A member of the RNA family "U1 spliceosomal RNA" from Monodelphis domestica, 160 nucleotides long. NCBI's taxonomy places the organism under Eukaryota, Opisthokonta, Dipnotetrapodomorpha, Theria, Monodelphis. The family's RNA type in Rfam is spliceosomal small nuclear RNA. Rfam describes the family as follows. U1 is a small nuclear RNA (snRNA) component of the spliceosome (involved in pre-mRNA splicing). Its 5' end forms complementary base pairs with the 5' splice junction, thus defining the 5' donor site of an intron. Clan: U1 clan. Pairs were carried over by alignment from the consensus structure, which is taken from published work.

[Rfam]
RNA sequence: AUACUUACCUGGCAGGGGUAAUUCCAUGAUCAUGAAGGUGGUUUUCCCAGGGUGAGGCUUAUCCAUUGCAUUCUGGAUUGGCUGACCCCUGUGAUUUCCCCAAAUGCAGGGAAAUUUGACUGCAUAAUUUGUAGUAGUGGGGGACUGGGUUCUUCCCUGU
Numbered sequence: 001a002u003a004c005u006u007a008c009c010u011g012g013c014a015g016g017g018g019u020a021a022u023u024c025c026a027u028g029a030u031c032a033u034g035a036a037g038g039u040g041g042u043u044u045u046c047c048c049a050g051g052g053u054g055a056g057g058c059u060u061a062u063c064c065a066u067u068g069c070a071u072u073c074u075g076g077a078u079u080g081g082c083u084g085a086c087c088c089c090u091g092u093g094a095u096u097u098c099c100c101c102a103a104a105u106g107c108a109g110g111g112a113a114a115u116u117u118g119a120c121u122g123c124a125u126a127a128u129u130u131g132u133a134g135u136a137g138u139g140g141g142g143g144a145c146u147g148g149g150u151u152c153u154u155c156c157c158u159g160u
Base pairs, nucleotide, nucleotide: 012123013122014121015120016048017047018046020044021043024041025040026039027038049090050089051088052087054086056083057082058081061078062077063076064075092118093117094116095114096112097111099110100109144160147157148156149155